[Rfam]
RNA sequence: CCCAGGGCUGAAGCCCUGGGCUUUGUUCUUUGGCACCUUCGGCGCC
Numbered sequence: 001c002c003c004a005g006g007g008c009u010g011a012a013g014c015c016c017u018g019g020g021c022u023u024u025g026u027u028c029u030u031u032g033g034c035a036c037c038u039u040c041g042g043c044g045c046c
Stems, first nucleotide, its partner, number of pairs: 001020008033045002036042002
RNA: Acido-Lenti-1 RNA